[Rfam]
RNA sequence: UUGCAAGUUCAAGGCUAUAGCAGAAGCACUCACAGUGCGGCCUGUCAGAUUCCAAUGAAAUCUGCAAAUUGCU
Numbered sequence: 001u002u003g004c005a006a007g008u009u010c011a012a013g014g015c016u017a018u019a020g021c022a023g024a025a026g027c028a029c030u031c032a033c034a035g036u037g038c039g040g041c042c043u044g045u046c047a048g049a050u051u052c053c054a055a056u057g058a059a060a061u062c063u064g065c066a067a068a069u070u071g072c073u
Base pairs, nucleotide, nucleotide: 013042014041015040016039019073020072021071022070025069026038027037028036046064047063048062049061050060051059
Mammalian CPEB3 ribozyme: a 73-nucleotide RNA sequence from Alligator sinensis. Taxonomically the source falls in Alligator (Eukaryota, Deuterostomia, Teleostomi, Sauria). A search with the family's covariance model found it, with a score of 40 bits.